[Rfam]
RNA: Purine riboswitch aptamer
Organism: Bacillus oleivorans
RNA sequence: UACUAAACUAAAUAUCUUCACUGUAUAACCUCUAGAAUAUGGCAGAGGGUCUCUACCAGGAACCAUAAAAUCCUGACUACAGAAAAUGAGUCAAUCGUU
Numbered sequence: 001u002a003c004u005a006a007a008c009u010a011a012a013u014a015u016c017u018u019c020a021c022u023g024u025a026u027a028a029c030c031u032c033u034a035g036a037a038u039a040u041g042g043c044a045g046a047g048g049g050u051c052u053c054u055a056c057c058a059g060g061a062a063c064c065a066u067a068a069a070a071u072c073c074u075g076a077c078u079a080c081a082g083a084a085a086a087u088g089a090g091u092c093a094a095u096c097g098u099u
Base pairs, nucleotide, nucleotide: 018085021082022081023080024079025078029048030047031046032045033044035043057075058074059073060072061071